The record is a 78-nucleotide sequence from Sphingomonas metalli, which matches "Makes More Granules Regulator RNA (mmgR)" in Rfam. The source organism's lineage runs through Bacteria, Pseudomonadati, Pseudomonadota, Sphingomonadaceae and Sphingomonas. Rfam's curators write: SuhB later renamed mmgR (makes more granules regulator) was a putative non-coding RNA found multiple times in the Agrobacterium tumefaciens genome and related alpha-proteobacteria. Pairs were carried over by alignment from the consensus structure. It scores 49 bits against the family's covariance model. Rfam classes the family as a small RNA.
RNA sequence: CGAACCUGCCUUUCAGGCAUCCUCUCCUAAAAACUUCCAGGGCUGGUCCAUUCGGACCGGCCCUUUUUUUCGCGUCUG
Numbered sequence: 001c002g003a004a005c006c007u008g009c010c011u012u013u014c015a016g017g018c019a020u021c022c023u024c025u026c027c028u029a030a031a032a033a034c035u036u037c038c039a040g041g042g043c044u045g046g047u048c049c050a051u052u053c054g055g056a057c058c059g060g061c062c063c064u065u066u067u068u069u070u071c072g073c074g075u076c077u078g
Stems, first nucleotide, its partner, number of pairs: 008018004040063009